This 271-nucleotide RNA from Pullulanibacillus camelliae belongs to the Rfam family "BsrG". The match comes from Rfam's covariance-model search (58 bits). It is annotated as a small RNA. From the family's description: bsrE, bsrG and bsrH pair through intermolecular interactions with antisense sRNAs. They form type I toxin/antitoxin system that includes an mRNA encoding for a short, toxic peptide (bsrE, bsrG and bsrH) and an antitoxin that is comprised of an antisense RNA. bsrG encodes a 39-amino-acid toxin, and the 180 nucleotide antisense sRNA called SR4 acts as the antitoxin (they overlap by 123 nucleotides). SR4 interaction with the 3'UTR of bsrG RNA promotes bsrG degradation and inhibits its translation. BsrG interferes with cell envelope biosynthesis, causes membrane invaginations and delocalisation of the cell wall synthesis and initiates autolysis. bsrE RNA encodes 30 amino-acid toxin peptide. For this family Rfam cites "Novel small RNA-encoding genes in the intergenic regions of Bacillus subtilis" (Saito et al., Gene, 2008).
Nucleotides: 271
Stems, first nucleotide, its partner, number of pairs: 001243004006238003010234001011173008022165004027050003031047005058142007072107004118133001120131001217233004249271009
Number, partner (000 for none) and nucleotide at each position: 001243g002242c003241a004240a005000c006238u007237a008236c009000a010234u011173a012172g013171c014170a015169g016168g017167g018166u019000g020000g021000c022165g023164g024163c025162u026000g027050a028049c029048a030000c031047u032046c033045c034044c035043u036000u037000u038000a039000g040000g041000a042000a043035g044034g045033g046032g047031g048029u049028g050027u051000a052000g053000c054000u055000u056000a057000u058142g059141a060140c061139g062138a063137c064136a065000u066000c067000u068000g069000a070000a071000a072107c073106u074105u075104u076000a077000a078000c079000a080000a081000u082000u083000g084000u085000a086000a087000u088000a089000g090000c091000a092000g093000c094000u095000c096000u097000a098000a099000c100000c101000u102000u103000a104075g105074a106073a107072g108000c109000u110000g111000u112000c113000u114000a115000u116000a117000c118133a119000g120131c121000a122000a123000c124000u125000a126000u127000u128000g129000u130000u131120g132000g133118u134000a135000u136064u137063g138062u139061c140060g141059u142058c143000g144000c145000g146000a147000u148000a149000a150000u151000a152000a153000a154000a155000a156000a157000g158000a159000a160000a161000u162025a163024g164023c165022c166018a167017c168016c169015c170014u171013g172012c173011u174000c175000u176000c177000c178000c179000a180000a181000g182000u183000u184000a185000g186000g187000u188000g189000a190000c191000u192000a193000u194000u195000u196000c197000u198000u199000a200000g201000u202000a203000c204000u205000u206000a207000a208000a209000u210000u211000u212000g213000g214000u215000u216000a217233g218232c219231c220230g221000c222000u223000a224000a225000c226000u227000c228000u229000g230220c231219g232218g233217c234010a235000u236008g237007u238006a239000g240004u241003u242002g243001c244000a245000c246000c247000a248000g249271a250270c251269u252268g253267a254266g255265c256264g257263u258000u259000u260000g261000c262000c263257g264256c265255g266254c267253u268252c269251a270250g271249u